RNA sequence: CGUACGAAAGGGCAAAUUCACUGAAAAGUGAAGACGCAAAGCUAAAGGGGCUAACGUUUCAUACUAUGCCAGCCAGCUACCGAA
Numbered sequence: 001c002g003u004a005c006g007a008a009a010g011g012g013c014a015a016a017u018u019c020a021c022u023g024a025a026a027a028g029u030g031a032a033g034a035c036g037c038a039a040a041g042c043u044a045a046a047g048g049g050g051c052u053a054a055c056g057u058u059u060c061a062u063a064c065u066a067u068g069c070c071a072g073c074c075a076g077c078u079a080c081c082g083a084a
Base pairs, nucleotide, nucleotide: 012037013036017032018031019030020029021028022027040078041077042076043075047074048073049070050069051068056064057063
c-di-GMP-I riboswitch aptamer: an 84-nucleotide RNA sequence from Ornithinibacillus halotolerans.
GEMM was predicted in a large-scale screen for bacterial structured RNA regulatory elements.
NCBI's taxonomy places the organism under Bacteria, Bacillati, Caryophanales, Bacillaceae, Ornithinibacillus.
The family's consensus secondary structure is taken from published work.
A search with the family's covariance model found it, with a score of 76 bits.